[Rfam]
RNA sequence: CCGUGCUAGGCGGGGAGCUAGCGGUGCCCUGAACCCGCAAUCCGCUCUAGCGGGGCCGAAUUCCCUCCCGAGGUCCGGUCCUGUGGGACUGCCUGGGCCACGUGGCGUGGAUGGUUGGGUCCCACGCGGCGAGGAGCCGUGAACCUGGUCAGGGCCGGAAGGCAGCAGCCAUAAGCGGUUUCCCUCGGGCGACGUGGGAGUGCCUGGCCGGAGUCGGCGAGCCCAGUGCAAGCUGGAGGAGCGCGAUCGACGGAGGGUGCACGG
Numbered sequence: 001c002c003g004u005g006c007u008a009g010g011c012g013g014g015g016a017g018c019u020a021g022c023g024g025u026g027c028c029c030u031g032a033a034c035c036c037g038c039a040a041u042c043c044g045c046u047c048u049a050g051c052g053g054g055g056c057c058g059a060a061u062u063c064c065c066u067c068c069c070g071a072g073g074u075c076c077g078g079u080c081c082u083g084u085g086g087g088a089c090u091g092c093c094u095g096g097g098c099c100a101c102g103u104g105g106c107g108u109g110g111a112u113g114g115u116u117g118g119g120u121c122c123c124a125c126g127c128g129g130c131g132a133g134g135a136g137c138c139g140u141g142a143a144c145c146u147g148g149u150c151a152g153g154g155c156c157g158g159a160a161g162g163c164a165g166c167a168g169c170c171a172u173a174a175g176c177g178g179u180u181u182c183c184c185u186c187g188g189g190c191g192a193c194g195u196g197g198g199a200g201u202g203c204c205u206g207g208c209c210g211g212a213g214u215c216g217g218c219g220a221g222c223c224c225a226g227u228g229c230a231a232g233c234u235g236g237a238g239g240a241g242c243g244c245g246a247u248c249g250a251c252g253g254a255g256g257g258u259g260c261a262c263g264g
Stems, first nucleotide, its partner, number of pairs: 001264006009057003012030004017025003034054005063257006072248004078242001079240004084235003090230002093226006101219002104215003112210009121198006127189001130187005135180006146171004154163003